[Rfam]
RNA sequence: UUGGAACUGAUAGGAUCCAUCCAUGGGAUCUUCAUAAAAGCAUAUUGAGGAGGUUUCAGAUUCCAUCGAUCUGAUCCCUCCGCCACCACAAACUGUUCGUCAGUGCUCCAACCAAUAGCUCGGCGCUGAACAGUAAACACCACACGCACGGGGACCGAUCCUAUAGAGGUAGCUAGCUAUCUUACCCGGAGGAUUUUUGGCUAAUGCACUGGCGAAUCGGCAAGUCACGAGAAGGGCGAUGAACUCAUGUCUAUGAGUGUU
Numbered sequence: 001u002u003g004g005a006a007c008u009g010a011u012a013g014g015a016u017c018c019a020u021c022c023a024u025g026g027g028a029u030c031u032u033c034a035u036a037a038a039a040g041c042a043u044a045u046u047g048a049g050g051a052g053g054u055u056u057c058a059g060a061u062u063c064c065a066u067c068g069a070u071c072u073g074a075u076c077c078c079u080c081c082g083c084c085a086c087c088a089c090a091a092a093c094u095g096u097u098c099g100u101c102a103g104u105g106c107u108c109c110a111a112c113c114a115a116u117a118g119c120u121c122g123g124c125g126c127u128g129a130a131c132a133g134u135a136a137a138c139a140c141c142a143c144a145c146g147c148a149c150g151g152g153g154a155c156c157g158a159u160c161c162u163a164u165a166g167a168g169g170u171a172g173c174u175a176g177c178u179a180u181c182u183u184a185c186c187c188g189g190a191g192g193a194u195u196u197u198u199g200g201c202u203a204a205u206g207c208a209c210u211g212g213c214g215a216a217u218c219g220g221c222a223a224g225u226c227a228c229g230a231g232a233a234g235g236g237c238g239a240u241g242a243a244c245u246c247a248u249g250u251c252u253a254u255g256a257g258u259g260u261u
Stems, first nucleotide, its partner, number of pairs: 095217006115205002243258004
A member of the RNA family "Early nodulin 40" from Hibiscus trionum, 261 nucleotides long. The family has 35 seed sequences and 341 matches in Rfam 15.1. Its family is annotated with nodulation in the Gene Ontology. The match comes from Rfam's covariance-model search (51 bits). The source organism's lineage runs through Eukaryota, Viridiplantae, Spermatophyta, Mesangiospermae and Hibiscus. The literature on the family includes a 2007 paper in Nucleic Acids Res by Gultyaev and Roussis, "Identification of conserved secondary structures and expansion segments in enod40 RNAs reveals new enod40 homologues in plants".